[Rfam]
RNA sequence: UGCAUUAAGCAGAAGCCAUCCACUUCUCACCUUACAACGCAUUACAUGUUGUUGGUAAGGUUAUAGUAAGCAAAACGAUUUAGUUAUGCUAUUGCGCGGGUGGUCUAUGCCACCCGUUUUUUAUUUUACAU
Numbered sequence: 001u002g003c004a005u006u007a008a009g010c011a012g013a014a015g016c017c018a019u020c021c022a023c024u025u026c027u028c029a030c031c032u033u034a035c036a037a038c039g040c041a042u043u044a045c046a047u048g049u050u051g052u053u054g055g056u057a058a059g060g061u062u063a064u065a066g067u068a069a070g071c072a073a074a075a076c077g078a079u080u081u082a083g084u085u086a087u088g089c090u091a092u093u094g095c096g097c098g099g100g101u102g103g104u105c106u107a108u109g110c111c112a113c114c115c116g117u118u119u120u121u122u123a124u125u126u127u128a129c130a131u
Base pairs, nucleotide, nucleotide: 011027012026013025014024015023029061030060031059037052038051039049040048096117097116098115099114100113101112102111103110104109

Description: The record is a 131-nucleotide RNA from Sporomusa silvacetica, which matches "Ribosomal protein L20 leader" in Rfam. The family's RNA type in Rfam is cis-regulatory leader. The literature on the family includes a 1994 paper in Prog Nucleic Acid Res Mol Biol by Zengel and Lindahl, "Diverse mechanisms for regulating ribosomal protein synthesis in Escherichia coli". Taxonomically the source falls in Sporomusa silvacetica (Bacteria, Bacillota, Selenomonadales, Sporomusa).